A member of the RNA family "Bacterial RNase P class A" from Azoarcus sp. KH32C, 382 nucleotides long. A search with the family's covariance model found it, with a score of 317 bits. Lineage of the source: Bacteria > Pseudomonadota > Betaproteobacteria > Rhodocyclales > Azoarcus.
[Rfam]
RNA sequence: GAAGUUCGCCAGGCAGUCGCUGCGUACCUCGUGUACGUGGAGGAAAGUCCGGGCCCCGCAGAGCAGGAUGCCGGCUAACGGCCGGGCGCCGCAAGGCGACGGAAAGUGCAACAGAGAGCAAACCGCCGAUGGCCUGUUUCGCAGGCACAGGUAAGGGUGAAACGGUGGGGUAAGAGCCCACCGCAGGACUGGUAACAGGACUGGCACGGCAAACCCCAUCCGGGGCAAGGCCAAAUAGGGGAGCAAUGGCGUGGCUCGCGCUGCUCCCGGGUAGGCUGCUAGAGCGCCGUGGCAACACGGCCCCCAGAGGAAUGACUGCCCGGCGGUCGCGGUUCGCUCCGCGGCCGUUCGACAGAACCCGGCUUAUCGGCGAACUUCCCUC
Numbered sequence: 001g002a003a004g005u006u007c008g009c010c011a012g013g014c015a016g017u018c019g020c021u022g023c024g025u026a027c028c029u030c031g032u033g034u035a036c037g038u039g040g041a042g043g044a045a046a047g048u049c050c051g052g053g054c055c056c057c058g059c060a061g062a063g064c065a066g067g068a069u070g071c072c073g074g075c076u077a078a079c080g081g082c083c084g085g086g087c088g089c090c091g092c093a094a095g096g097c098g099a100c101g102g103a104a105a106g107u108g109c110a111a112c113a114g115a116g117a118g119c120a121a122a123c124c125g126c127c128g129a130u131g132g133c134c135u136g137u138u139u140c141g142c143a144g145g146c147a148c149a150g151g152u153a154a155g156g157g158u159g160a161a162a163c164g165g166u167g168g169g170g171u172a173a174g175a176g177c178c179c180a181c182c183g184c185a186g187g188a189c190u191g192g193u194a195a196c197a198g199g200a201c202u203g204g205c206a207c208g209g210c211a212a213a214c215c216c217c218a219u220c221c222g223g224g225g226c227a228a229g230g231c232c233a234a235a236u237a238g239g240g241g242a243g244c245a246a247u248g249g250c251g252u253g254g255c256u257c258g259c260g261c262u263g264c265u266c267c268c269g270g271g272u273a274g275g276c277u278g279c280u281a282g283a284g285c286g287c288c289g290u291g292g293c294a295a296c297a298c299g300g301c302c303c304c305c306a307g308a309g310g311a312a313u314g315a316c317u318g319c320c321c322g323g324c325g326g327u328c329g330c331g332g333u334u335c336g337c338u339c340c341g342c343g344g345c346c347g348u349u350c351g352a353c354a355g356a357a358c359c360c361g362g363c364u365u366a367u368c369g370g371c372g373a374a375c376u377u378c379c380c381u382c
Stems, first nucleotide, its partner, number of pairs: 001378010011367001012320007020040008045365003049362005054225004061257004066221005071085005086100001087098004101216002106214002108210002123156002125152003130147002133144001164182006183205001184203003189198003229277004239268006248262005284303001286301006